[Rfam]
RNA sequence: GUAAGCUUUCUGGGGGCCAGAGCAGAAGCAUUCACAUUGCAACCCCUGUCAAGUAAUACCUGGUAAUACCUACUAAUUCCGCU
Numbered sequence: 001g002u003a004a005g006c007u008u009u010c011u012g013g014g015g016g017c018c019a020g021a022g023c024a025g026a027a028g029c030a031u032u033c034a035c036a037u038u039g040c041a042a043c044c045c046c047u048g049u050c051a052a053g054u055a056a057u058a059c060c061u062g063g064u065a066a067u068a069c070c071u072a073c074u075a076a077u078u079c080c081g082c083u
Stems, first nucleotide, its partner, number of pairs: 013046004021083003025079003028040003051071001053069003
Mammalian CPEB3 ribozyme: an 83-nucleotide sequence from Alligator mississippiensis. It scores 44 bits against the family's covariance model. The family's consensus secondary structure is taken from published work. Its family is annotated with RNA nuclease activity in the Gene Ontology. The source organism's lineage runs through Eukaryota, Opisthokonta, Eumetazoa, Alligatorinae and Alligator. From the family's description: The mammalian CPEB3 ribozyme is a self cleaving RNA located in the second intron of the CPEB3 gene which belongs to a family of genes regulating messenger RNA polyadenylation.